[Rfam]
RNA sequence: AAAGUCCAUUGCAAUGAAGGAGUAGCGAUCCACAUUGACCCCGAGUCAUGCGCGGGCAGCCGUGAGGCUGUGCGUGAAGCGUUGACAGGGGAGCAUGUAGGCCAGCCAUUGAACCGCGAGAUUGACGCUUCUCGGGUGCCGACGUUCGUCUUGUGUGCGGAAGGCAAUAUGAAUCGGUGCGACAGCGCGAGUGUCGAUUGAACCCGGCGUGGUCUGAGACCC
Numbered sequence: 001a002a003a004g005u006c007c008a009u010u011g012c013a014a015u016g017a018a019g020g021a022g023u024a025g026c027g028a029u030c031c032a033c034a035u036u037g038a039c040c041c042c043g044a045g046u047c048a049u050g051c052g053c054g055g056g057c058a059g060c061c062g063u064g065a066g067g068c069u070g071u072g073c074g075u076g077a078a079g080c081g082u083u084g085a086c087a088g089g090g091g092a093g094c095a096u097g098u099a100g101g102c103c104a105g106c107c108a109u110u111g112a113a114c115c116g117c118g119a120g121a122u123u124g125a126c127g128c129u130u131c132u133c134g135g136g137u138g139c140c141g142a143c144g145u146u147c148g149u150c151u152u153g154u155g156u157g158c159g160g161a162a163g164g165c166a167a168u169a170u171g172a173a174u175c176g177g178u179g180c181g182a183c184a185g186c187g188c189g190a191g192u193g194u195c196g197a198u199u200g201a202a203c204c205c206g207g208c209g210u211g212g213u214c215u216g217a218g219a220c221c222c
Base pairs, nucleotide, nucleotide: 012037013036014035015034016033019031020030021029023190025188026187039091040090041089042088045086046085047084048083049081050080051076052075053074054073056071057070058069059068060067061066110216111214113213114212115211116210117209118208132207133206134205135204136203137202138165139164140163143159144158145157170201172199173198174197175196176195177194178193179192180191
The family of this 222-nucleotide sequence from Rhizobium sp. YS-1r is "Group II catalytic intron D1-D4-6". About the family: Group II introns are found in rRNA, tRNA and mRNA of organelles in fungi, plants and protists, and also in mRNA in bacteria. For this family Rfam cites "The ins and outs of group II introns" (Bonen and Vogel, Trends Genet, 2001). The match comes from Rfam's covariance-model search (180 bits). The source organism's lineage runs through Bacteria, Pseudomonadota, Alphaproteobacteria, Hyphomicrobiales and Rhizobium.